[Rfam]
This 194-nucleotide RNA sequence belongs to the Rfam family "IMES-1 RNA motif". On this family, see Weinberg et al., Nature 2009: "Exceptional structured noncoding RNAs revealed by bacterial metagenome analysis". Rfam's curators put it in the seed alignment.
RNA sequence: CAACGACUGACGCAGGAACAACUGCAGAAGGGAAUGCGAGGGAAGUUGGAAGGAGAGUCCUCAGGAAGAAAGCGUUGUAGAGCGCCGGCAAAAAGAGAGCUUUACGACCCACCAAGGGUGAAGAGAUACCACCCGAGGAGCUAAAGAGAAAUCUCGCUUUAGACGCCUGGGGAACUCGGAUUAAAUUUAAAAAA
Numbered sequence: 001c002a003a004c005g006a007c008u009g010a011c012g013c014a015g016g017a018a019c020a021a022c023u024g025c026a027g028a029a030g031g032g033a034a035u036g037c038g039a040g041g042g043a044a045g046u047u048g049g050a051a052g053g054a055g056a057g058u059c060c061u062c063a064g065g066a067a068g069a070a071a072g073c074g075u076u077g078u079a080g081a082g083c084g085c086c087g088g089c090a091a092a093a094a095g096a097g098a099g100c101u102u103u104a105c106g107a108c109c110c111a112c113c114a115a116g117g118g119u120g121a122a123g124a125g126a127u128a129c130c131a132c133c134c135g136a137g138g139a140g141c142u143a144a145a146g147a148g149a150a151a152u153c154u155c156g157c158u159u160u161a162g163a164c165g166c167c168u169g170g171g172g173a174a175c176u177c178g179g180a181u182u183a184a185a186u187u188u189a190a191a192a193a194a
Stems, first nucleotide, its partner, number of pairs: 001048004011038004060171006074108009116134005123155005141162006